[Rfam]
RNA sequence: GUUUAUUUAAAAGCGCCAGGACUGCUGAUGAUCGGAUUGAACAGCAGUUGACGAGGAGAGGGUUUAUCGAUUUUUUCGGCGGAUGCCCUCCGGUUGCCGCAUGACAGCCGUCAAGCUUCUGUAAAAAACAAAAGGGUGACUUUUUGGACAAAAUCAGAGGCUACAUGCCCA
Numbered sequence: 001g002u003u004u005a006u007u008u009a010a011a012a013g014c015g016c017c018a019g020g021a022c023u024g025c026u027g028a029u030g031a032u033c034g035g036a037u038u039g040a041a042c043a044g045c046a047g048u049u050g051a052c053g054a055g056g057a058g059a060g061g062g063u064u065u066a067u068c069g070a071u072u073u074u075u076u077c078g079g080c081g082g083a084u085g086c087c088c089u090c091c092g093g094u095u096g097c098c099g100c101a102u103g104a105c106a107g108c109c110g111u112c113a114a115g116c117u118u119c120u121g122u123a124a125a126a127a128a129c130a131a132a133a134g135g136g137u138g139a140c141u142u143u144u145u146g147g148a149c150a151a152a153a154u155c156a157g158a159g160g161c162u163a164c165a166u167g168c169c170c171a
Stems, first nucleotide, its partner, number of pairs: 020049008029040001058090005067079004091110006115161007129146007
The record is a 171-nucleotide sequence from Alkalihalobacillus trypoxylicola, which matches "glmS glucosamine-6-phosphate activated ribozyme aptamer" in Rfam.
Rfam describes the family as follows. This entry contains a glucosamine-6-phosphate activated ribozyme that is found in the mRNA for GlmS. GlmS is an enzyme that uses fructose-6-phosphate and glutamine to generate glucosamine-6-phosphate.
The base pairs follow the family's consensus structure, which is taken from published work.
Taxonomically the source falls in Alkalihalobacillus (Bacteria, Bacillota, Caryophanales, Bacillaceae).